[Rfam]
RNA sequence: GAUUUCCUUUGGGGCAGGGUGAAAUUCCCGACCGGCGGUGUUAAACAUUUAUGUUUUUAGUCCGUGACCCGGAGCACAAUGUGUGAAGGUGGAUUUGGUGAAAUUCCAAAGCCGACAGUAAAGUCUGGAUGAGAAAAGGAAAAU
Numbered sequence: 001g002a003u004u005u006c007c008u009u010u011g012g013g014g015c016a017g018g019g020u021g022a023a024a025u026u027c028c029c030g031a032c033c034g035g036c037g038g039u040g041u042u043a044a045a046c047a048u049u050u051a052u053g054u055u056u057u058u059a060g061u062c063c064g065u066g067a068c069c070c071g072g073a074g075c076a077c078a079a080u081g082u083g084u085g086a087a088g089g090u091g092g093a094u095u096u097g098g099u100g101a102a103a104u105u106c107c108a109a110a111g112c113c114g115a116c117a118g119u120a121a122a123g124u125c126u127g128g129a130u131g132a133g134a135a136a137a138g139g140a141a142a143a144u
Stems, first nucleotide, its partner, number of pairs: 003142008017029003031124002033114002035065004060112002069089002094110005116127003
The family of this 144-nucleotide RNA from Aquibacillus halophilus is "FMN riboswitch aptamer (RFN element)". NCBI's taxonomy places the organism under Bacteria, Bacillota, Bacilli, Bacillaceae, Aquibacillus. The RFN element is a highly conserved domain that is found frequently in the 5'-untranslated regions of prokaryotic mRNAs that encode for flavin mononucleotide (FMN) biosynthesis and transport proteins. The base pairs follow the family's consensus structure, which is taken from published work.